RNA sequence: UUGCACGAGGCAAGUCCUACACGACCAGCUCCUGCAGAAUCCCCCAGGGCGGGAACGCAGCAAGGGUAUGUGGUCGUAGCGGUGCGAUGUAGGUAGCUUGCCUUUUU
Numbered sequence: 001u002u003g004c005a006c007g008a009g010g011c012a013a014g015u016c017c018u019a020c021a022c023g024a025c026c027a028g029c030u031c032c033u034g035c036a037g038a039a040u041c042c043c044c045c046a047g048g049g050c051g052g053g054a055a056c057g058c059a060g061c062a063a064g065g066g067u068a069u070g071u072g073g074u075c076g077u078a079g080c081g082g083u084g085c086g087a088u089g090u091a092g093g094u095a096g097c098u099u100g101c102c103u104u105u106u107u
Base pairs, nucleotide, nucleotide: 008103009102010101011100012099013098014097015096017092018091019090020089021088022086023085024083025082

The family of this 107-nucleotide RNA from Zeaxanthinibacter enoshimensis is "Bacteroidales small SRP". Lineage of the source: Bacteria > Pseudomonadati > Bacteroidota > Flavobacteriia > Zeaxanthinibacter. It scores 111 bits against the family's covariance model. Clan: SRP clan.